[Rfam]
RNA sequence: GCCAAUCAUGAAGCGCCAGCGCUGGGAAAAUCGGAUGGACCAAUCAUUUUCCAGCAGACGAGGUGGAGGAGUAUCGAACAGUCGGCGGAUGCCUCCCGGCCGUGAAGCCCGGUCGUAACGUUCAUCUGGAAAUCAGCUGAGUGAUCAGCUGGACAAAGGGAUGGAUGGGCUCACAA
Numbered sequence: 001g002c003c004a005a006u007c008a009u010g011a012a013g014c015g016c017c018a019g020c021g022c023u024g025g026g027a028a029a030a031u032c033g034g035a036u037g038g039a040c041c042a043a044u045c046a047u048u049u050u051c052c053a054g055c056a057g058a059c060g061a062g063g064u065g066g067a068g069g070a071g072u073a074u075c076g077a078a079c080a081g082u083c084g085g086c087g088g089a090u091g092c093c094u095c096c097c098g099g100c101c102g103u104g105a106a107g108c109c110c111g112g113u114c115g116u117a118a119c120g121u122u123c124a125u126c127u128g129g130a131a132a133u134c135a136g137c138u139g140a141g142u143g144a145u146c147a148g149c150u151g152g153a154c155a156a157a158g159g160g161a162u163g164g165a166u167g168g169g170c171u172c173a174c175a176a
Base pairs, nucleotide, nucleotide: 021055022054023053024052025051026050027049029047065096066095067094068093069092074085075084076083077082097115098114099113100112101111102110120166121165122164123163124162125161126160134151135150136149137148138147139146140145